[Rfam]
RNA sequence: CCAUUCCUUCGUUAGGUGAGGCUCCUGCAUGGACAGACGCCACUGCCCGGAAACGUCGAAAGACGCCAGCGGGCCAACAGGUAUUACCGGCUUAAGGUUCUACCUAGUGUGGCUGAGAAAAAGUCCGAUCUCUAAGCUAUGCAGUGCCAAAGCUCAACGAGCGGGAGGAUGGG
Numbered sequence: 001c002c003a004u005u006c007c008u009u010c011g012u013u014a015g016g017u018g019a020g021g022c023u024c025c026u027g028c029a030u031g032g033a034c035a036g037a038c039g040c041c042a043c044u045g046c047c048c049g050g051a052a053a054c055g056u057c058g059a060a061a062g063a064c065g066c067c068a069g070c071g072g073g074c075c076a077a078c079a080g081g082u083a084u085u086a087c088c089g090g091c092u093u094a095a096g097g098u099u100c101u102a103c104c105u106a107g108u109g110u111g112g113c114u115g116a117g118a119a120a121a122a123g124u125c126c127g128a129u130c131u132c133u134a135a136g137c138u139a140u141g142c143a144g145u146g147c148c149a150a151a152g153c154u155c156a157a158c159g160a161g162c163g164g165g166a167g168g169a170u171g172g173g
Stems, first nucleotide, its partner, number of pairs: 005169006011158002013095001015154003020148003025144008039113005045074005054065004080104004086098003115132003